[Rfam]
RNA sequence: AUAUCUUAAACUUAGCAGUACAAAAAUAAUGAUUCACCAUGGCGCCAGAGUUCUUGAUGCUUACGUGAGAUGAAGUUUUGAGCAAGUAAAAGGUUGCCUCUUAGGUGACCCAACUACUUUUUGGGAUACCUGGCUUUGUGAUCUUCCAU
Numbered sequence: 001a002u003a004u005c006u007u008a009a010a011c012u013u014a015g016c017a018g019u020a021c022a023a024a025a026a027u028a029a030u031g032a033u034u035c036a037c038c039a040u041g042g043c044g045c046c047a048g049a050g051u052u053c054u055u056g057a058u059g060c061u062u063a064c065g066u067g068a069g070a071u072g073a074a075g076u077u078u079u080g081a082g083c084a085a086g087u088a089a090a091a092g093g094u095u096g097c098c099u100c101u102u103a104g105g106u107g108a109c110c111c112a113a114c115u116a117c118u119u120u121u122u123g124g125g126a127u128a129c130c131u132g133g134c135u136u137u138g139u140g141a142u143c144u145u146c147c148a149u
Stems, first nucleotide, its partner, number of pairs: 004022001007020002031052005053069004084149001086147001088145001091144007100133002103131005109125005
Shown here is a 149-nucleotide sequence from Neotoma lepida, a member of the family "U12 minor spliceosomal RNA". It is annotated as a spliceosomal small nuclear RNA. Rfam 15.1 lists 2,106 matches to the family in 1,170 species. A reference for the family is Tarn and Steitz (1997), "Pre-mRNA splicing: the discovery of a new spliceosome doubles the challenge", Trends Biochem Sci.